[Rfam]
RNA sequence: CCCGCCACUGUGCUUGUCUUGUGAUGCAGUGACCAGUACAGUCCAGAGGUGAGCUGACAGAAAAUGCCAGCUUAGGAAACAGAGUUAUUCUUCUUGUGGGUAACUUUGUGCCGAAGUCUGGGAACAGUC
Numbered sequence: 001c002c003c004g005c006c007a008c009u010g011u012g013c014u015u016g017u018c019u020u021g022u023g024a025u026g027c028a029g030u031g032a033c034c035a036g037u038a039c040a041g042u043c044c045a046g047a048g049g050u051g052a053g054c055u056g057a058c059a060g061a062a063a064a065u066g067c068c069a070g071c072u073u074a075g076g077a078a079a080c081a082g083a084g085u086u087a088u089u090c091u092u093c094u095u096g097u098g099g100g101u102a103a104c105u106u107u108g109u110g111c112c113g114a115a116g117u118c119u120g121g122g123a124a125c126a127g128u129c
Base pairs, nucleotide, nucleotide: 005049006048008046009045010044018036019035021033022031023030065122067121068120069119070117071116073115075112076111080108081107082106083105084104085103088100089099090098
Background
A member of the RNA family "Small nucleolar RNA SNORA65" from Podargus strigoides, 129 nucleotides long. Its Rfam clan is "SNORA65 clan". The base pairs follow the family's consensus structure, which was predicted with RNAalifold. Rfam's curators write: U65 belongs to the H/ACA class of snoRNAs which are thought to guide the sites of modification of uridines to pseudouridines. A reference for the family is Huttenhofer et al. (2001), "RNomics: an experimental approach that identifies 201 candidates for novel, small, non-messenger RNAs in mouse", EMBO J. A search with the family's covariance model found it, with a score of 99 bits. Gene Ontology terms of the family: nucleolus and RNA processing.